About this RNA: Rfam assigns this 64-nucleotide sequence from Alligator sinensis to the family "Selenocysteine insertion sequence 1". A reference for the family is Walczak et al. (1996), "A novel RNA structural motif in the selenocysteine insertion element of eukaryotic selenoprotein mRNAs", RNA. A search with the family's covariance model found it, with a score of 36 bits. The source organism's lineage runs through Eukaryota, Opisthokonta, Euteleostomi, Sarcopterygii and Alligator. It is annotated as a cis-regulatory element.

RNA sequence: GCAUCACCAUGAAGGGCAGGCCCAAAGCCCCCACAGGGCGGGCCUGCCCCGAGCUGCCGGGUGC
Numbered sequence: 001g002c003a004u005c006a007c008c009a010u011g012a013a014g015g016g017c018a019g020g021c022c023c024a025a026a027g028c029c030c031c032c033a034c035a036g037g038g039c040g041g042g043c044c045u046g047c048c049c050c051g052a053g054c055u056g057c058c059g060g061g062u063g064c
Base pairs, nucleotide, nucleotide: 001064002063003062004061005060014049015048016047017046018045019044020043021042022041023040029038030037031036